[Rfam]
RNA sequence: GGCUGGUCUGAGUGCAGUGGUGUUUACAACUAAUUGAUCACAGACAGUUACGGAUUUCUUUGUUCCUUCUCCACUCCCACUGCUUCACUUUAGCCUAAA
Number, nucleotide and partner (000 for none) at each position: 001g095002g094003c093004u092005g091006g000007u000008c000009u000010g090011a089012g000013u000014g086015c000016a081017g080018u079019g078020g077021u000022g076023u000024u000025u000026a000027c000028a064029a063030c062031u000032a060033a059034u000035u000036g000037a000038u000039c000040a000041c000042a000043g000044a000045c000046a000047g000048u000049u000050a000051c000052g000053g000054a000055u000056u000057u000058c000059u033060u032061u000062g030063u029064u028065c000066c000067u000068u000069c000070u000071c000072c000073a000074c000075u000076c022077c020078c019079a018080c017081u016082g000083c000084u000085u000086c014087a000088c000089u011090u010091u005092a004093g003094c002095c001096u000097a000098a000099a000
RNA: Y RNA
Organism: Chlorocebus sabaeus